[Rfam]
This 101-nucleotide sequence from Lentivirus simimdef belongs to the Rfam family "HIV primer binding site (PBS)". Rfam links the family to the GO term tRNA binding. About the family: This family consists of several, structured HIV primer binding sites (PBSs). tRNA(3)(Lys) binds to the PBS to initiate reverse transcription.

Nucleotides: 101
Stems, first nucleotide, its partner, number of pairs: 001101007010056008018043002020040001022038001024036003058091001060089001063086002065075003078083001
Number, partner (000 for none) and nucleotide at each position: 001101c002100u003099c004098u005097g006096g007095u008000a009000u010056c011055u012054a013053g014052a015051g016050a017049u018043c019042c020040c021000u022038c023000a024036g025035a026034u027000a028000a029000c030000u031000g032000u033000a034026g035025u036024c037000u038022g039000u040020g041000c042019g043018g044000c045000c046000a047000a048000a049017a050016u051015c052014u053013c054012u055011a056010g057000c058091a059000g060089u061000g062000g063086c064085g065075c066074c067073c068000g069000a070000a071000c072000a073067g074066g075065g076000a077000c078083u079000u080000g081000a082000a083078a084000a085064c086063g087000a088000a089060a090000g091058u092000a093000a094000g095007a096006c097005c098004a099003g100002a101001g